Shown here is an 80-nucleotide RNA from Carlito syrichta, a member of the family "Small nucleolar RNA SNORD115". The family's consensus secondary structure was predicted with PFOLD. A search with the family's covariance model found it, with a score of 50 bits.
RNA sequence: AUGUCAAUGAUGAGUACUUUAUAUUGCCUUGAGGAGUGAUGAUGACUUAAUAUCACAUACAAUGGCAUGCGCUGAGGCCC
Numbered sequence: 001a002u003g004u005c006a007a008u009g010a011u012g013a014g015u016a017c018u019u020u021a022u023a024u025u026g027c028c029u030u031g032a033g034g035a036g037u038g039a040u041g042a043u044g045a046c047u048u049a050a051u052a053u054c055a056c057a058u059a060c061a062a063u064g065g066c067a068u069g070c071g072c073u074g075a076g077g078c079c080c
Base pairs, nucleotide, nucleotide: 003078004077005074006073008071009070